[Rfam]
RNA: ZMP/ZTP riboswitch aptamer (pfl RNA motif)
RNA sequence: UACGCGGGCCGUGACUGGCGCUGAGGUGGAGUACCACCGGGGAGCGGUCCGUGGUCGAUGCCGCGCGCCUGGGCGAUGAAG
Numbered sequence: 001u002a003c004g005c006g007g008g009c010c011g012u013g014a015c016u017g018g019c020g021c022u023g024a025g026g027u028g029g030a031g032u033a034c035c036a037c038c039g040g041g042g043a044g045c046g047g048u049c050c051g052u053g054g055u056c057g058a059u060g061c062c063g064c065g066c067g068c069c070u071g072g073g074c075g076a077u078g079a080a081g
Base pairs, nucleotide, nucleotide: 003053004052005051006050007049008048009047010046011045012044015041016040017069018068019067020066021065026037027036028035029034059075060074061073062072